[Rfam]
The record is an 81-nucleotide sequence from Brenneria goodwinii, which matches "antisense RNA of dnaA mRNA" in Rfam.
The source organism's lineage runs through Bacteria, Pseudomonadati, Gammaproteobacteria, Enterobacterales and Brenneria.
For this family Rfam cites "Identification and characterization of a cis-encoded antisense RNA associated with the replication process of Salmonella enterica serovar Typhi" (Dadzie et al., PLoS One, 2013).
The family's consensus secondary structure was predicted with RNAfold.
Gene Ontology term of the family: regulation of mRNA stability.
RNA sequence: UUUUGCGUUGGCUUUACGCGCGAUGAUGCCGUUGCCGACCGCAUGUAAUAAGUGCGUCUUACCCAGGCCGGUUCCGCCGUA
Numbered sequence: 001u002u003u004u005g006c007g008u009u010g011g012c013u014u015u016a017c018g019c020g021c022g023a024u025g026a027u028g029c030c031g032u033u034g035c036c037g038a039c040c041g042c043a044u045g046u047a048a049u050a051a052g053u054g055c056g057u058c059u060u061a062c063c064c065a066g067g068c069c070g071g072u073u074c075c076g077c078c079g080u081a
Stems, first nucleotide, its partner, number of pairs: 004043004009038001011036001013034001016032003020029002052077003056074001061072003